[Rfam]
RNA sequence: CGUAUGGUACUUGGCAAUUGAUCAAGUGGCGAUACGGCCUAAAUAUAGAGGU
Numbered sequence: 001c002g003u004a005u006g007g008u009a010c011u012u013g014g015c016a017a018u019u020g021a022u023c024a025a026g027u028g029g030c031g032a033u034a035c036g037g038c039c040u041a042a043a044u045a046u047a048g049a050g051g052u
Stems, first nucleotide, its partner, number of pairs: 001036005007030002011025004015020001

L31-Gammaproteobacteria ribosomal protein leader: a 52-nucleotide sequence from Thalassomonas sp. M1454. It is annotated as a cis-regulatory leader. Its Rfam clan is "Ribosomal Protein L31 Leader clan". The match comes from Rfam's covariance-model search (48 bits).